[Rfam]
RNA sequence: UUUACCCUCACAGCCGGAUAUUCAGAGCCUAUGGGCUUUGUUUCAGUGCAGAGGGGAUAAAGGGACCUGUCCCCGGCCAGGAAUGGCGAAAAUCAAAUCUCAUGGAAGCCGCCAGUAGCCCAGACCGGGCGAGAGCCGUGACACAUGA
Number, nucleotide and partner (000 for none) at each position: 001u000002u000003u057004a000005c055006c054007c053008u052009c051010a000011c000012a000013g049014c048015c000016g000017g000018a000019u000020a043021u000022u000023c040024a039025g038026a037027g036028c035029c034030u000031a000032u000033g000034g029035g028036c027037u026038u025039u024040g023041u000042u000043u020044c000045a000046g000047u000048g014049c013050a000051g009052a008053g007054g006055g005056g000057a003058u000059a000060a000061a000062g000063g000064g000065a000066c000067c000068u000069g000070u000071c000072c000073c000074c000075g000076g087077c086078c085079a084080g000081g000082a000083a000084u079085g078086g077087c076088g000089a000090a000091a000092a000093u000094c000095a000096a000097a000098u000099c000100u148101c147102a146103u145104g144105g000106a000107a000108g139109c138110c000111g136112c135113c000114a000115g000116u000117a000118g130119c129120c128121c127122a000123g000124a000125c000126c000127g121128g120129g119130c118131g000132a000133g000134a000135g112136c111137c000138g109139u108140g000141a000142c000143a000144c104145a103146u102147g101148a100
The record is a 148-nucleotide RNA sequence from Anaerotruncus sp. G3(2012), which matches "RT-14 RNA" in Rfam.
The organism belongs to Anaerotruncus, within Bacteria.
It scores 59 bits against the family's covariance model.